[Rfam]
RNA sequence: CCUCCCUUUAAGCUGGUCCAGUGAGGCCGGGAAGGGGUACACUCCUCACGCAUGCUUUCGUAUGCGUAACGGACGAUACCUCUUUGGAUACAAAGAGGUUUUUUGUUU
Numbered sequence: 001c002c003u004c005c006c007u008u009u010a011a012g013c014u015g016g017u018c019c020a021g022u023g024a025g026g027c028c029g030g031g032a033a034g035g036g037g038u039a040c041a042c043u044c045c046u047c048a049c050g051c052a053u054g055c056u057u058u059c060g061u062a063u064g065c066g067u068a069a070c071g072g073a074c075g076a077u078a079c080c081u082c083u084u085u086g087g088a089u090a091c092a093a094a095g096a097g098g099u100u101u102u103u104u105g106u107u108u
Base pairs, nucleotide, nucleotide: 003037004036005035006034007033008032009031013030014029015028016027017026018025043072044071046069048067049066050065051064052063053062054061055060075102076101078099079098080097081096082095083094084093085092086091
Rfam assigns this 108-nucleotide RNA sequence from Alteribacter lacisalsi to the family "PyrR binding site". From the family's description: This family represents the PyrR binding site and terminator structure. This RNA structure is found upstream of a variety of genes involved in pyrimidine biosynthesis and transport. The alignment also includes a portion of the antiterminator structure.